[Rfam]
RNA sequence: UCCCUACCCAUGUGUGUAGGACCUCAAAAGAUCACCAUUAAAGUUGAUACGGAUCUCUAAAAAAGUUAUCACAUGGGUGUGGGACUUUACUUUUCUAUAGAUCCGUGCUAUAUUUAAUGGUGAUCCUUUGGGGUCCUACACACAUGGGUGGGGG
Number, nucleotide and partner (000 for none) at each position: 001u000002c153003c152004c151005u150006a149007c148008c147009c146010a145011u144012g143013u142014g000015u140016g139017u138018a137019g136020g135021a134022c133023c132024u131025c130026a129027a128028a127029a000030g125031a124032u123033c000034a121035c120036c119037a118038u117039u116040a115041a114042a113043g000044u000045u110046g109047a000048u107049a106050c105051g104052g103053a102054u101055c100056u099057c000058u097059a096060a000061a094062a093063a092064a091065g090066u089067u000068a087069u082070c081071a080072c079073a078074u000075g000076g000077g000078u073079g072080u071081g070082g069083g000084a000085c000086u000087u068088u000089a066090c065091u064092u063093u062094u061095c000096u059097a058098u000099a056100g055101a054102u053103c052104c051105g050106u049107g048108c000109u046110a045111u000112a000113u042114u041115u040116a039117a038118u037119g036120g035121u034122g000123a032124u031125c030126c000127u028128u027129u026130g025131g024132g023133g022134u021135c020136c019137u018138a017139c016140a015141c000142a013143c012144a011145u010146g009147g008148g007149u006150g005151g004152g003153g002154g000

Background: MIR8565 microRNA precursor family: a 154-nucleotide sequence from Amborella trichopoda. NCBI's taxonomy places the organism under Eukaryota, Streptophytina, Amborellales, Amborellaceae, Amborella. Gene Ontology terms of the family: miRNA-mediated post-transcriptional gene silencing and RISC complex. The base pairs follow the family's consensus structure, which was predicted with RNAalifold. It scores 138 bits against the family's covariance model.